[Rfam]
RNA sequence: AUUUAGUGAGGGAAUGAAGGUCUCCCAUGGUAUUAUACCAAAACCGCAAUUUUGCUGAUGACUUCUAUGAUUAA
Numbered sequence: 001a002u003u004u005a006g007u008g009a010g011g012g013a014a015u016g017a018a019g020g021u022c023u024c025c026c027a028u029g030g031u032a033u034u035a036u037a038c039c040a041a042a043a044c045c046g047c048a049a050u051u052u053u054g055c056u057g058a059u060g061a062c063u064u065c066u067a068u069g070a071u072u073a074a
Stems, first nucleotide, its partner, number of pairs: 010026004016065004021060001046055003
RNA: Fluoride riboswitch aptamer (crcB RNA motif)